[Rfam]
RNA sequence: CAACGGAGUAGAAGCGGUCUGUAAUACCAAGAAUAAGGUUCUUGGCUUAUUGCUGGACAUUGCUCCAAUA
Number, nucleotide and partner (000 for none) at each position: 001c000002a000003a000004c000005g066006g065007a064008g063009u062010a061011g000012a000013a000014g000015c055016g000017g000018u057019c056020u000021g053022u052023a051024a050025u049026a048027c000028c000029a000030a000031g000032a000033a000034u000035a000036a000037g000038g000039u000040u000041c000042u000043u000044g000045g000046c000047u000048u026049a025050u024051u023052g022053c021054u000055g015056g019057a018058c000059a000060u000061u010062g009063c008064u007065c006066c005067a000068a000069u000070a000
Xanthine riboswitch aptamer (NMT1 RNA): a 70-nucleotide RNA from Vibrio ziniensis. For this family Rfam cites "A bacterial riboswitch class senses xanthine and uric acid to regulate genes associated with purine oxidation" (Yu and Breaker, RNA, 2020). The match comes from Rfam's covariance-model search (43 bits). NCBI's taxonomy places the organism under Bacteria, Pseudomonadati, Pseudomonadota, Vibrionaceae, Vibrio.